Source information:
A member of the RNA family "Small nucleolar RNA SNORD115" from Mesocricetus auratus, 79 nucleotides long.
[Rfam]
RNA sequence: AGGUUUAUGAUGACAAACAAAUGUCAUGAAGAGUGCUGAUGACAUAAAAAUGAUGCUCAAUGAGAUUUUGCUGAGGCCC
Numbered sequence: 001a002g003g004u005u006u007a008u009g010a011u012g013a014c015a016a017a018c019a020a021a022u023g024u025c026a027u028g029a030a031g032a033g034u035g036c037u038g039a040u041g042a043c044a045u046a047a048a049a050a051u052g053a054u055g056c057u058c059a060a061u062g063a064g065a066u067u068u069u070g071c072u073g074a075g076g077c078c079c
Stems, first nucleotide, its partner, number of pairs: 002078003005073001008070002

Annotation: Its family is annotated with nucleolus and RNA processing in the Gene Ontology. The family's consensus secondary structure was predicted with PFOLD. NCBI's taxonomy places the organism under Eukaryota, Bilateria, Deuterostomia, Theria, Mesocricetus. The match comes from Rfam's covariance-model search (65 bits). On this family, see Cavaille et al., Proc Natl Acad Sci U S A 2000: "Identification of brain-specific and imprinted small nucleolar RNA genes exhibiting an unusual genomic organization".